[Rfam]
RNA: c-di-AMP riboswitch aptamer (ydaO/yuaA leader)
Organism: Geodermatophilus ruber
RNA sequence: GUCGUCCAGCCACCACAUCAGGGCAGGGGUGGGGGACCCACGUUCACGGCGUGCUCGCGCGCGCCUGGGGGUGAAGCCGUGCACCGCGGCCGGGCACCGAUCGCCCGAACCCGACAGCUCACCUCGCCGGCGGUGAUCGGAGAAUCA
Numbered sequence: 001g002u003c004g005u006c007c008a009g010c011c012a013c014c015a016c017a018u019c020a021g022g023g024c025a026g027g028g029g030u031g032g033g034g035g036a037c038c039c040a041c042g043u044u045c046a047c048g049g050c051g052u053g054c055u056c057g058c059g060c061g062c063g064c065c066u067g068g069g070g071g072u073g074a075a076g077c078c079g080u081g082c083a084c085c086g087c088g089g090c091c092g093g094g095c096a097c098c099g100a101u102c103g104c105c106c107g108a109a110c111c112c113g114a115c116a117g118c119u120c121a122c123c124u125c126g127c128c129g130g131c132g133g134u135g136a137u138c139g140g141a142g143a144a145u146c147a
Stems, first nucleotide, its partner, number of pairs: 003132004010028002029127006039068001069112003077089004092106004